RNA sequence: CUGAUGGGCGCGUCCGGGUCAAUUGCGGCUUGCAACACCCGAUCUUGCUGCCGGUGCCAGACGACAUGGCCGCCGGCAAGCGGGAGCGCGUGACCGUCAG
Numbered sequence: 001c002u003g004a005u006g007g008g009c010g011c012g013u014c015c016g017g018g019u020c021a022a023u024u025g026c027g028g029c030u031u032g033c034a035a036c037a038c039c040c041g042a043u044c045u046u047g048c049u050g051c052c053g054g055u056g057c058c059a060g061a062c063g064a065c066a067u068g069g070c071c072g073c074c075g076g077c078a079a080g081c082g083g084g085a086g087c088g089c090g091u092g093a094c095c096g097u098c099a100g
Base pairs, nucleotide, nucleotide: 001100002099003098004097005096008091009090010089011088012087013086015041016040017039018038023035024034025033026032027031043085044084045083046082047081049078050077051076052075053074054073055072056071
RNA: L4-Archaeoglobi ribosomal protein leades